Rfam assigns this 161-nucleotide RNA from Saccharomyces cerevisiae to the family "Small nucleolar RNA snR161". Its Rfam clan is "SNORA44 clan". It is annotated as an H/ACA-box small nucleolar RNA. Rfam's curators put it in the seed alignment. The organism belongs to Saccharomyces, within Eukaryota.
RNA sequence: UAAAUAUACAACACCCAGUAUUUUUGGCUGCCCGUGUCUUUCUCUACCACGGGUAGUCUCUCUAAGCUGGCAGAUAGAUGUUUAUUGAACCGCUUAAGUUCCGUUGUGAAGUUUUCGUCUUUCAGGCUGUAUUUCAUAACACUACUGUAGUUCACACAUAC
Numbered sequence: 001u002a003a004a005u006a007u008a009c010a011a012c013a014c015c016c017a018g019u020a021u022u023u024u025u026g027g028c029u030g031c032c033c034g035u036g037u038c039u040u041u042c043u044c045u046a047c048c049a050c051g052g053g054u055a056g057u058c059u060c061u062c063u064a065a066g067c068u069g070g071c072a073g074a075u076a077g078a079u080g081u082u083u084a085u086u087g088a089a090c091c092g093c094u095u096a097a098g099u100u101c102c103g104u105u106g107u108g109a110a111g112u113u114u115u116c117g118u119c120u121u122u123c124a125g126g127c128u129g130u131a132u133u134u135c136a137u138a139a140c141a142c143u144a145c146u147g148u149a150g151u152u153c154a155c156a157c158a159u160a161c
Base pairs, nucleotide, nucleotide: 015070016069017068018067019066027057028056029055030054031053032052033051034050035049036048086154087153088152089151090150092148093147103140104139105138106137107136108135109134110133111132112131116129117128119126120125